Background
Shown here is an 86-nucleotide RNA from Alkaliphilus metalliredigens, a member of the family "c-di-GMP-I riboswitch aptamer". Pairs were carried over by alignment from the consensus structure, which is taken from published work. Gene Ontology term of the family: cyclic-di-GMP binding.
[Rfam]
RNA sequence: GAAUACAGAGGGCAAACUUAUCGAAAGGUAAGGACGCAAAGCCAUGGGCCUACAUUCUAAACAGAAGAUGGUAGCCGGUUGCAGAA
Numbered sequence: 001g002a003a004u005a006c007a008g009a010g011g012g013c014a015a016a017c018u019u020a021u022c023g024a025a026a027g028g029u030a031a032g033g034a035c036g037c038a039a040a041g042c043c044a045u046g047g048g049c050c051u052a053c054a055u056u057c058u059a060a061a062c063a064g065a066a067g068a069u070g071g072u073a074g075c076c077g078g079u080u081g082c083a084g085a086a
Stems, first nucleotide, its partner, number of pairs: 012037002017032006040080004046076002048072003055066004